[Rfam]
RNA: PyrR binding site
Organism: Caminicella sporogenes
RNA sequence: UAAGCCUUUAAAUUGGUCCAGAGAGGCCGGUAAGGUAGAUGGUUUUAGGUUUUAAAUAGGUGAGCUGUGCCUGUCGAUAGGUAAAUUAUACCUUCUGCUUCUCUAGCAGAAGGUUUUAUUUUU
Number, nucleotide and partner (000 for none) at each position: 001u000002a000003a000004g036005c035006c034007u033008u032009u000010a000011a000012a000013u030014u029015g028016g027017u026018c025019c000020a000021g000022a000023g000024a000025g018026g017027c016028c015029g014030g013031u000032a008033a007034g006035g005036u004037a000038g000039a000040u000041g000042g000043u000044u000045u000046u000047a000048g000049g000050u080051u079052u000053u077054a000055a000056a074057u073058a072059g071060g070061u069062g068063a000064g000065c000066u000067g000068u062069g061070c060071c059072u058073g057074u056075c000076g000077a053078u000079a051080g050081g000082u000083a000084a000085a000086u118087u000088a116089u000090a114091c113092c112093u111094u110095c109096u108097g107098c106099u105100u000101c000102u000103c000104u000105a099106g098107c097108a096109g095110a094111a093112g092113g091114u090115u000116u088117u000118a086119u000120u000121u000122u000123u000